[Rfam]
This 112-nucleotide sequence from Exobacillus caeni belongs to the Rfam family "epsC RNA".
The family's consensus secondary structure is taken from published work.
The family's RNA type in Rfam is cis-regulatory element.
RNA sequence: UGGUGAUGUCUCCUUACCUUUAUCAAUGGAAACACUCGGUCAUGCUGUGGGUUGAAAGAAACCUUAGAUGCCAGUCGUCGAAGGUGUGACGUGAGGUCGGGUUUAAUGCCCU
Numbered sequence: 001u002g003g004u005g006a007u008g009u010c011u012c013c014u015u016a017c018c019u020u021u022a023u024c025a026a027u028g029g030a031a032a033c034a035c036u037c038g039g040u041c042a043u044g045c046u047g048u049g050g051g052u053u054g055a056a057a058g059a060a061a062c063c064u065u066a067g068a069u070g071c072c073a074g075u076c077g078u079c080g081a082a083g084g085u086g087u088g089a090c091g092u093g094a095g096g097u098c099g100g101g102u103u104u105a106a107u108g109c110c111c112u
Stems, first nucleotide, its partner, number of pairs: 002018003007034003011030003035095004039090008049064005067079004099111004